[Rfam]
RNA sequence: GGGUGUCCACCGCAUCGUGCGGCGGGCAGGUUCAUGCGUCGGUCGGGCCGCCACG
Numbered sequence: 001g002g003g004u005g006u007c008c009a010c011c012g013c014a015u016c017g018u019g020c021g022g023c024g025g026g027c028a029g030g031u032u033c034a035u036g037c038g039u040c041g042g043u044c045g046g047g048c049c050g051c052c053a054c055g
Stems, first nucleotide, its partner, number of pairs: 005027004010022003037055003041052003
RNA: nhaA-I RNA